A member of the RNA family "U4atac minor spliceosomal RNA" from Microcebus murinus, 126 nucleotides long. The organism belongs to Microcebus, within Eukaryota. For this family Rfam cites "Evolution of spliceosomal snRNA genes in metazoan animals" (Marz et al., J Mol Evol, 2008). U4atac is an essential component of the minor U12-type spliceosome complex which is required for removal of the rarer class of eukaryotic introns (AT-AC, U12-type). It scores 79 bits against the family's covariance model. The base pairs follow the family's consensus structure, which is taken from published work. Its family is annotated with pre-mRNA 5'-splice site binding, spliceosomal tri-snRNP complex assembly and U4atac snRNP in the Gene Ontology.
[Rfam]
Nucleotides: 126
Base pairs, nucleotide, nucleotide: 006018007017008016009015021060022059023058026055027054028053029052030051031050032049038046039045083112084111085110087108090104091103092102093101094100
Number, partner (000 for none) and nucleotide at each position: 001000a002000c003000c004000a005000u006018c007017c008016u009015u010000g011000u012000c013000u014000u015009g016008g017007g018006g019000u020000a021060g022059c023058g024000c025000u026055a027054c028053u029052g030051u031050c032049u033000g034000a035000u036000g037000a038046a039045c040000g041000a042000g043000u044000a045039g046038u047000g048000a049032g050031g051030a052029c053028a054027g055026u056000a057000c058023u059022g060021c061000u062000a063000u064000c065000g066000c067000c068000u069000g070000c071000a072000c073000a074000g075000c076000a077000a078000g079000c080000c081000c082000u083112u084111a085110u086000c087108a088000a089000c090104u091103a092102g093101a094100g095000a096000u097000u098000u099000g100094c101093u102092u103091u104090a105000c106000u107000u108087u109000c110085g111084u112083g113000c114000g115000a116000u117000u118000u119000u120000u121000a122000g123000a124000a125000a126000a